[Rfam]
Nucleotides: 127
Base pairs, nucleotide, nucleotide: 020050021049022048023047024046025045026044027043033040034039081105082104083103085101087099088098089097090096091095119127121125
Number, partner (000 for none) and nucleotide at each position: 001000c002000g003000c004000c005000u006000u007000g008000c009000g010000c011000u012000c013000g014000g015000g016000c017000a018000a019000u020050a021049u022048c023047u024046a025045u026044u027043u028000a029000a030000u031000g032000a033040c034039a035000g036000a037000a038000a039034u040033g041000g042000a043027a044026a045025g046024u047023a048022g049021a050020u051000g052000a053000u054000u055000g056000c057000u058000a059000g060000u061000u062000u063000a064000a065000a066000a067000c068000u069000a070000a071000a072000u073000c074000c075000a076000g077000c078000c079000c080000a081105g082104g083103u084000a085101c086000c087099a088098c089097g090096u091095g092000u093000c094000u095091u096090g097089c098088g099087u100000c101085g102000g103083a104082c105081c106000a107000a108000u109000u110000u111000u112000u113000g114000u115000a116000c117000u118000c119127g120000u121125u122000u123000u124000a125121a126000u127119c

The record is a 127-nucleotide RNA sequence from Entamoeba invadens, which matches "U4 spliceosomal RNA" in Rfam. Pairs were carried over by alignment from the consensus structure, which is taken from published work. The family has 177 seed sequences and 32,178 matches in Rfam 15.1. Rfam classes the family as a spliceosomal small nuclear RNA.